[Rfam]
RNA sequence: GUGCCGUGAUGCUUAUUUAACACAUCAUUCUUAUUGUAUGGUGAAGACUUCAUAAAAAAACUGAGCACU
Numbered sequence: 001g002u003g004c005c006g007u008g009a010u011g012c013u014u015a016u017u018u019a020a021c022a023c024a025u026c027a028u029u030c031u032u033a034u035u036g037u038a039u040g041g042u043g044a045a046g047a048c049u050u051c052a053u054a055a056a057a058a059a060a061c062u063g064a065g066c067a068c069u
Base pairs, nucleotide, nucleotide: 001068002067003066004065